A member of the RNA family "Bacterial RNase P class A" from Haloferula luteola, 405 nucleotides long.
RNA sequence: GCCGCUCCCCGGGCGAUCGCUGGUGGGUUUUUCGAAAUCCGCCAGAGGAAAGUCCGGACACCACAGGGCAGCGUGCCUCGUGAAAACGAGGGACGGUCGCGUCAAGGCGACUGGACGGAAAGUGCAGCAGAGAGCAAACCGCCGAUGGCCCGCAAGGGAACAGGUAAGGGUGAAAGGGUGGGGUAAGAGCCCACCGCGCCGGAGGCAACGACGGUGGCACGGCAAACCCCGCGCGGUGCAAGACAGAACAGGGGAAGGGCUGCCCGUCCGUUGGAUCCCCGGGUAUUAGUCGCCCCCUGAAAAAUCAGGGAAGUCGCUCGUAAAGAGCGUCUUAGAGAAAUGAUCGUCCGCCUGAGGGAAUGGCCUCAGGAUUGACAGAAUCCGGCUUACAGGGGAGCGGCCCGC
Dot-bracket structure: ((((((((((((((((((.(((((((((........)))))))))....[[[.[[[[[((((...[[[[.((((((((((......)))))(.(((((((......)))))))..)((...((((.............(((((..((.(((....)))..)))))..)).......((((((.......))))))((((((..(....)..))))).)...))..)))))))))))))...((((......(((.(...(((.(.]]]]).))).).))).....)..)))..................................................)))))))................................]]]]]]]].).))))))))))....
Description:
Rfam classes the family as a ribozyme.